The record is an 82-nucleotide RNA, which matches "ZMP/ZTP riboswitch aptamer (pfl RNA motif)" in Rfam.
The family's consensus secondary structure is taken from published work.
The sequence is in the family's curated seed alignment.
[Rfam]
RNA sequence: AACAACAUACAAUGCUGACGGAUUAGUGGAAUUAACCACGUGUAUUGUAUGCGAAGAAACGCCGACCGUCUGGGCAGAAGAU
Number, nucleotide and partner (000 for none) at each position: 001a000002a000003c000004a000005a000006c051007a050008u049009a048010c047011a046012a045013u000014g000015c042016u000017g070018a069019c068020g067021g066022a000023u000024u000025a000026g039027u038028g037029g036030a000031a000032u000033u000034a000035a000036c029037c028038a027039c026040g000041u000042g015043u000044a000045u012046u011047g010048u009049a008050u007051g006052c000053g000054a000055a000056g000057a000058a000059a000060c000061g075062c074063c073064g000065a000066c021067c020068g019069u018070c017071u000072g000073g063074g062075c061076a000077g000078a000079a000080g000081a000082u000